[Rfam]
RNA sequence: CGCUCUGGCCAGCAAUGGUCCGGGUGAUCUGUCAGAAGUCAGCAGAGGUCGUAGUACCAGUCCGGGCCAGGAGGCUAGGAACGGGAAGGGC
Numbered sequence: 001c002g003c004u005c006u007g008g009c010c011a012g013c014a015a016u017g018g019u020c021c022g023g024g025u026g027a028u029c030u031g032u033c034a035g036a037a038g039u040c041a042g043c044a045g046a047g048g049u050c051g052u053a054g055u056a057c058c059a060g061u062c063c064g065g066g067c068c069a070g071g072a073g074g075c076u077a078g079g080a081a082c083g084g085g086a087a088g089g090g091c
Stems, first nucleotide, its partner, number of pairs: 001026002004023002007020005039046002048091003057084002061080002